[Rfam]
RNA: Bacterial RNase P class A
RNA sequence: UGGGUCGACAAGACGGUCGCGGCAUCUACAGGUGUCGAGGAACGUCCGGGCUCCACAGGGCAGGACGGUGGGUAACACCCACCCGGGGUAACCCGCGAGAAAGUGCAACAGAGAGCAAACCGCCCCUGGCUUCGGCCGGGGGUAAGGCUGAAACGGUGGUGUAAGAGACCACCAGCGGUCGUGGUAACACGGUCGGCUAGGUAAACCUCGUCCGGAGCAAGGUCAGACAGAAAACGUUGAGGCGGCCCGCUGAGUUUUCGGGUAGACCGCUAGAGGGUUGCGGUAACGUGGCCCCCAGAUAGAUGGCCGUCCAUCGCAUACGCGUGGACAGAACCCGGCGUAAUAGUCGGCCCAUUCA
Numbered sequence: 001u002g003g004g005u006c007g008a009c010a011a012g013a014c015g016g017u018c019g020c021g022g023c024a025u026c027u028a029c030a031g032g033u034g035u036c037g038a039g040g041a042a043c044g045u046c047c048g049g050g051c052u053c054c055a056c057a058g059g060g061c062a063g064g065a066c067g068g069u070g071g072g073u074a075a076c077a078c079c080c081a082c083c084c085g086g087g088g089u090a091a092c093c094c095g096c097g098a099g100a101a102a103g104u105g106c107a108a109c110a111g112a113g114a115g116c117a118a119a120c121c122g123c124c125c126c127u128g129g130c131u132u133c134g135g136c137c138g139g140g141g142g143u144a145a146g147g148c149u150g151a152a153a154c155g156g157u158g159g160u161g162u163a164a165g166a167g168a169c170c171a172c173c174a175g176c177g178g179u180c181g182u183g184g185u186a187a188c189a190c191g192g193u194c195g196g197c198u199a200g201g202u203a204a205a206c207c208u209c210g211u212c213c214g215g216a217g218c219a220a221g222g223u224c225a226g227a228c229a230g231a232a233a234a235c236g237u238u239g240a241g242g243c244g245g246c247c248c249g250c251u252g253a254g255u256u257u258u259c260g261g262g263u264a265g266a267c268c269g270c271u272a273g274a275g276g277g278u279u280g281c282g283g284u285a286a287c288g289u290g291g292c293c294c295c296c297a298g299a300u301a302g303a304u305g306g307c308c309g310u311c312c313a314u315c316g317c318a319u320a321c322g323c324g325u326g327g328a329c330a331g332a333a334c335c336c337g338g339c340g341u342a343a344u345a346g347u348c349g350g351c352c353c354a355u356u357c358a
Base pairs, nucleotide, nucleotide: 001354002353003352004351005350006349007348008347009346012311013310014309015308016307017306018305020037021036022035023034024033025032026031042341043340044339046338047337048336049335050334051217052216053215054214058248059247060246061245063213064212065211066210067209068082069081070080071079072078083097084095085094086093087092098208099207103206104205105202106201120147121146122143123142124141125140126139127138128137129136130135155173156172157171158170159169160168175197176195177194178193179192180191181190182189183188221268222267223266224265230259231258232257233256234255235254241251242250243249275294276293277292278291279290280289281288282287